A member of the RNA family "Bacterial small subunit ribosomal RNA" from Fibrobacter succinogenes, 543 nucleotides of a longer RNA. The literature on the family includes a 2001 paper in Science by Yusupov et al., "Crystal structure of the ribosome at 5.5 A resolution". Rfam 15.1 lists 42,628 matches to the family in 10,626 species. The sequence is in the family's curated seed alignment.

[Rfam]
RNA sequence: UCAAUGAAGAGUUUGAUCCUGGCUCAGAACGAACGCUGGUGGCGUGUCUUAUACAUGCAAGUCGAGCGAGGCAGCAAUGCCGAGCGGCGAACGGGUGAGUAACGCGUAAGCAAUCUGCCCCAUAUCAGGAAAUACCCGUGCCAACGCGCGGUUAAUGUCCAGGAGAGUGGCCUUCCGCAUGGAGGGUUGACUAGAGAUUUAUCGGUAUGGGAUGAGCUUGCGUCCGAUUAGCUAGUUGGCGGGGCAACGGCCCACCAAGGCGACGAUCGGUAGCCGGCCUGAGAGGGUGAUCGGCCACAUUGGGACUGAGAUACGGCCCAGACUCCUACGGGAGGCAGCAGUAGGGAAUAUUGCACAAUGGGGGAAACCCUGAUGCAGCAACGCCACGUGUGGGAAGAAGCAUUUCGGUGUGUAAACCACUGUCAUGAGGGAAUAAGGCCCGCCUUCGGGCGGGAUUGAAUGUACCUUGAGAGGAAGCACCGGCAAACUUCGUGCCAGCAGCCGCGGUAAUACGAGGGGUGCAAGCGUUGUUCGGAAUUACUG
Numbered sequence: 001u002c003a004a005u006g007a008a009g010a011g012u013u014u015g016a017u018c019c020u021g022g023c024u025c026a027g028a029a030c031g032a033a034c035g036c037u038g039g040u041g042g043c044g045u046g047u048c049u050u051a052u053a054c055a056u057g058c059a060a061g062u063c064g065a066g067c068g069a070g071g072c073a074g075c076a077a078u079g080c081c082g083a084g085c086g087g088c089g090a091a092c093g094g095g096u097g098a099g100u101a102a103c104g105c106g107u108a109a110g111c112a113a114u115c116u117g118c119c120c121c122a123u124a125u126c127a128g129g130a131a132a133u134a135c136c137c138g139u140g141c142c143a144a145c146g147c148g149c150g151g152u153u154a155a156u157g158u159c160c161a162g163g164a165g166a167g168u169g170g171c172c173u174u175c176c177g178c179a180u181g182g183a184g185g186g187u188u189g190a191c192u193a194g195a196g197a198u199u200u201a202u203c204g205g206u207a208u209g210g211g212a213u214g215a216g217c218u219u220g221c222g223u224c225c226g227a228u229u230a231g232c233u234a235g236u237u238g239g240c241g242g243g244g245c246a247a248c249g250g251c252c253c254a255c256c257a258a259g260g261c262g263a264c265g266a267u268c269g270g271u272a273g274c275c276g277g278c279c280u281g282a283g284a285g286g287g288u289g290a291u292c293g294g295c296c297a298c299a300u301u302g303g304g305a306c307u308g309a310g311a312u313a314c315g316g317c318c319c320a321g322a323c324u325c326c327u328a329c330g331g332g333a334g335g336c337a338g339c340a341g342u343a344g345g346g347a348a349u350a351u352u353g354c355a356c357a358a359u360g361g362g363g364g365a366a367a368c369c370c371u372g373a374u375g376c377a378g379c380a381a382c383g384c385c386a387c388g389u390g391u392g393g394g395a396a397g398a399a400g401c402a403u404u405u406c407g408g409u410g411u412g413u414a415a416a417c418c419a420c421u422g423u424c425a426u427g428a429g430g431g432a433a434u435a436a437g438g439c440c441c442g443c444c445u446u447c448g449g450g451c452g453g454g455a456u457u458g459a460a461u462g463u464a465c466c467u468u469g470a471g472a473g474g475a476a477g478c479a480c481c482g483g484c485a486a487a488c489u490u491c492g493u494g495c496c497a498g499c500a501g502c503c504g505c506g507g508u509a510a511u512a513c514g515a516g517g518g519g520u521g522c523a524a525g526c527g528u529u530g531u532u533c534g535g536a537a538u539u540a541c542u543g
Base pairs, nucleotide, nucleotide: 009025010024011023012022013021027533028532029531030530032529033528034527035526036525037524039387040386041385042384043383044382045380046379047345052343053342054341056340057339058338061088062087063086066085067084070081071080072079073078095298096297097296104223105222106221107220108219109218110217111216114215115214119211120210121209122208123207124206125205128160129159130158136151137150138149139148140147141146167191168190169188170187171186172185173184174183175182176181196203197202224270225269226268231261232260233259236258237257238256239255241253242252243251273295274294275293276292277288278287279286280285300321301320302319303318304317323334324333325332326331351377353376354375355374359372360371361370362369363368390420391419392418393417400411401410402409403408424474426469427468428467429466430465434460439454440453441452477522478521479520480519481518488517489516490515491514492513498505499504